[Rfam]
RNA: DUF3800-VIII RNA
RNA sequence: AAAGUCUUUAAUCACUCGAAGGUCUGCGUACUACGCAGAGGGUUUAUGUAGAGUUAUUUGGGGCUUU
Numbered sequence: 001a002a003a004g005u006c007u008u009u010a011a012u013c014a015c016u017c018g019a020a021g022g023u024c025u026g027c028g029u030a031c032u033a034c035g036c037a038g039a040g041g042g043u044u045u046a047u048g049u050a051g052a053g054u055u056a057u058u059u060g061g062g063g064c065u066u067u
Stems, first nucleotide, its partner, number of pairs: 001067008010058003015053003023039007